Source information
Rfam assigns this 74-nucleotide RNA from Callithrix jacchus to the family "Small nucleolar RNA SNORD60". The family's consensus secondary structure was predicted with PFOLD. The family is grouped with related families in Rfam's "SNORD60 clan". By type it is a C/D-box small nucleolar RNA. It scores 71 bits against the family's covariance model. For this family Rfam cites "Purified box C/D snoRNPs are able to reproduce site-specific 2'-O-methylation of target RNA in vitro" (Galardi et al., Mol Cell Biol, 2002).
[Rfam]
RNA sequence: AGCUGUGACGAAUUGCUUUAAUUUCUGACACCUCGUGUGAAAGCUGCACUUGCAGUCUUGCAUGACUGAGGCUU
Numbered sequence: 001a002g003c004u005g006u007g008a009c010g011a012a013u014u015g016c017u018u019u020a021a022u023u024u025c026u027g028a029c030a031c032c033u034c035g036u037g038u039g040a041a042a043g044c045u046g047c048a049c050u051u052g053c054a055g056u057c058u059u060g061c062a063u064g065a066c067u068g069a070g071g072c073u074u
Base pairs, nucleotide, nucleotide: 001073002072003071004070043056044055045054046053047052